[Rfam]
Rfam assigns this 99-nucleotide RNA from Quercus lobata to the family "Small nucleolar RNA snoR99". A search with the family's covariance model found it, with a score of 76 bits. The literature on the family includes a 2002 paper in Curr Biol by Marker et al., "Experimental RNomics: identification of 140 candidates for small non-messenger RNAs in the plant Arabidopsis thaliana". Lineage of the source: Eukaryota > Mesangiospermae > Pentapetalae > Fagales > Quercus. The family's RNA type in Rfam is H/ACA-box small nucleolar RNA. The family's consensus secondary structure was predicted with WAR.
RNA sequence: GUGCUUCAGGGAUAGCAAGUCCCCUCAUAUUAAUCCAUCUAAAUCACUUUGUCAGCUGUCUCUUUGUUGUCUUGCUGAUCAUUAUAGGGUGGUACAUAC
Numbered sequence: 001g002u003g004c005u006u007c008a009g010g011g012a013u014a015g016c017a018a019g020u021c022c023c024c025u026c027a028u029a030u031u032a033a034u035c036c037a038u039c040u041a042a043a044u045c046a047c048u049u050u051g052u053c054a055g056c057u058g059u060c061u062c063u064u065u066g067u068u069g070u071c072u073u074g075c076u077g078a079u080c081a082u083u084a085u086a087g088g089g090u091g092g093u094a095c096a097u098a099c
Base pairs, nucleotide, nucleotide: 035092036091037090038089039088051079052078053077054076055075056074058072